[Rfam]
c-di-GMP-I-GGC riboswitch aptamer: an 85-nucleotide sequence from Fictibacillus arsenicus.
RNA sequence: UUUGAUAAAGGCAAAUUCACUGAAAAGUGGGGACGCAAAGCUAAAGGGGCUUCAUUUCUUAUAAUAUGCCAGCCAGCUACCUUAC
Numbered sequence: 001u002u003u004g005a006u007a008a009a010g011g012c013a014a015a016u017u018c019a020c021u022g023a024a025a026a027g028u029g030g031g032g033a034c035g036c037a038a039a040g041c042u043a044a045a046g047g048g049g050c051u052u053c054a055u056u057u058c059u060u061a062u063a064a065u066a067u068g069c070c071a072g073c074c075a076g077c078u079a080c081c082u083u084a085c
Base pairs, nucleotide, nucleotide: 004081011036012035016031017030018029019028020027021026034072039078040077041076042075046074047073048070049069050068
Dot-bracket structure: ...(......((...((((((....))))))..[))..((((...(((((.................))).]))))))..)....
Pairs were carried over by alignment from the consensus structure, which is taken from published work. The organism belongs to Fictibacillus, within Bacteria.